[Rfam]
RNA sequence: AAGACUAUACUUUCAGGGAUCAUUUCUAUAGUUUCUAACUUGAGAAAUGUGUUUCUAAAGUGAUUGGUCUCGCUAACCACGAUGAAGAGGUAAUGAUACUUCUCUCUGAGCGCGAAGCGUACUUCAGGUAGUGAGUCUCUCACAUGCCUGUAGUAAUUGAUGACCGUUCACUGUCGGUUUCGACCAGCAGCGAUGGGAGAAGUAUGUUCAGAGUGGC
Number, nucleotide and partner (000 for none) at each position: 001a041002a040003g039004a000005c000006u000007a034008u000009a032010c031011u030012u000013u000014c000015a027016g026017g025018g024019a000020u000021c000022a000023u000024u018025u017026c016027u015028a000029u000030a011031g010032u009033u000034u007035c000036u000037a000038a000039c003040u002041u001042g000043a000044g000045a000046a000047a000048u000049g000050u000051g064052u000053u000054u063055c062056u000057a000058a000059a000060g000061u000062g055063a054064u051065u000066g000067g000068u000069c000070u000071c000072g000073c000074u000075a000076a000077c216078c215079a214080c213081g000082a000083u000084g000085a000086a000087g000088a000089g000090g000091u000092a000093a000094u000095g000096a205097u204098a203099c202100u201101u200102c199103u198104c197105u196106c195107u000108g000109a000110g167111c166112g165113c000114g000115a000116a000117g000118c000119g000120u155121a154122c153123u152124u000125c000126a149127g148128g147129u146130a000131g143132u142133g141134a140135g000136u000137c000138u000139c000140u134141c133142a132143c131144a000145u000146g129147c128148c127149u126150g000151u000152a123153g122154u121155a120156a000157u000158u000159g000160a000161u000162g000163a000164c000165c112166g111167u110168u000169c000170a000171c190172u189173g188174u187175c000176g185177g184178u183179u000180u000181c000182g000183a178184c177185c176186a000187g174188c173189a172190g171191c000192g000193a000194u000195g106196g105197g104198a103199g102200a101201a100202g099203u098204a097205u096206g000207u000208u000209c000210a000211g000212a000213g080214u079215g078216g077217c000
The family of this 217-nucleotide sequence from Oryzias melastigma is "Small nucleolar RNA U3". The family's consensus secondary structure is taken from published work. NCBI's taxonomy places the organism under Eukaryota, Eumetazoa, Euteleostomi, Adrianichthyidae, Oryzias. Rfam describes the family as follows. Small nucleolar RNAs (snoRNAs) are involved in the processing and modification of rRNA in the nucleolus. There are two main classes of snoRNAs: the box C/D class, and the box H/ACA class. U3 snoRNA is a member of the box C/D class. Indeed, the box C/D element is a subset of the six short sequence elements found in all U3 snoRNAs, namely boxes A, A', B, C, C', and D. The U3 snoRNA secondary structure is characterised by a small 5' domain (with boxes A and A'), and a larger 3' domain (with boxes B, C, C', and D), the two domains being linked by a single-stranded hinge. Boxes B and C form the B/C motif, which appears to be exclusive to U3 snoRNAs, and boxes C' and D form the C'/D motif. The latter is functionally similar to the C/D motifs found in other snoRNAs. The 5' domain and the hinge region act as a pre-rRNA-binding domain. The 3' domain has conserved protein-binding sites. Both the box B/C and box C'/D motifs are sufficient for nuclear retention of U3 snoRNA. The box C'/D motif is also necessary for nucleolar localisation, stability and hyper-methylation of U3 snoRNA. Both box B/C and C'/D motifs are involved in specific protein interactions and are necessary for the rRNA processing functions of U3 snoRNA. Gene Ontology terms of the family: RNA processing and nucleolus. A reference for the family is Speckmann et al. (1999), "Nuclear retention elements of U3 small nucleolar RNA", Mol Cell Biol.